[Rfam]
RNA sequence: AUUAAACUUCGGUAGGUGAGGCUACCGCAGGGAUAUGGAUUGCUACCGCGAAAUAAUGGAGACACUAUUAGUUGGUUAGCAGGUUGUGUCGAAUCAAGGCAUAACCUAAUGCAAUUUCAAGGCGUCAAAUGUACGCCAUGCCCUGCGAUGCUAAAGCUUGAACGGUUAAUUGCU
Numbered sequence: 001a002u003u004a005a006a007c008u009u010c011g012g013u014a015g016g017u018g019a020g021g022c023u024a025c026c027g028c029a030g031g032g033a034u035a036u037g038g039a040u041u042g043c044u045a046c047c048g049c050g051a052a053a054u055a056a057u058g059g060a061g062a063c064a065c066u067a068u069u070a071g072u073u074g075g076u077u078a079g080c081a082g083g084u085u086g087u088g089u090c091g092a093a094u095c096a097a098g099g100c101a102u103a104a105c106c107u108a109a110u111g112c113a114a115u116u117u118c119a120a121g122g123c124g125u126c127a128a129a130u131g132u133a134c135g136c137c138a139u140g141c142c143c144u145g146c147g148a149u150g151c152u153a154a155a156g157c158u159u160g161a162a163c164g165g166u167u168a169a170u171u172g173c174u
Base pairs, nucleotide, nucleotide: 005170010165011163013097015158016157017156020152021151022150026147027146028145029144030143031142032141039115040114041113042112043111045076046075047074048073054067055066057064058063082106083105084104085103088100089099090098118135
Dot-bracket structure: ....(....((.[.(((..(((...(((((((......(((((.((((.....((.((....)).)).....)))).....((((..(((......])))..))))....)))))..(................).....)))))))..)))...)))....).)....)....

M-box riboswitch aptamer (ykoK leader): a 174-nucleotide RNA sequence from Lachnoclostridium phytofermentans. The literature on the family includes a 2004 paper in Proc Natl Acad Sci U S A by Barrick et al., "New RNA motifs suggest an expanded scope for riboswitches in bacterial genetic control". Rfam's curators put it in the seed alignment. Rfam 15.1 lists 1,095 matches to the family in 932 species. Rfam links the family to the GO terms regulation of gene expression and response to magnesium ion.